[Rfam]
RNA sequence: UAAAUGACAAAUAAAGCACCUCAUAUAAUAGCGGGGAUAUGGCCUGCGAGUUUCUACCGGCUGCCUUAAACAGCUGACUAUGGGUGAAAGCAUUCGGAAU
Numbered sequence: 001u002a003a004a005u006g007a008c009a010a011a012u013a014a015a016g017c018a019c020c021u022c023a024u025a026u027a028a029u030a031g032c033g034g035g036g037a038u039a040u041g042g043c044c045u046g047c048g049a050g051u052u053u054c055u056a057c058c059g060g061c062u063g064c065c066u067u068a069a070a071c072a073g074c075u076g077a078c079u080a081u082g083g084g085u086g087a088a089a090g091c092a093u094u095c096g097g098a099a100u
Stems, first nucleotide, its partner, number of pairs: 020084006029049001031047005058076006
RNA: Purine riboswitch aptamer
Organism: Domibacillus mangrovi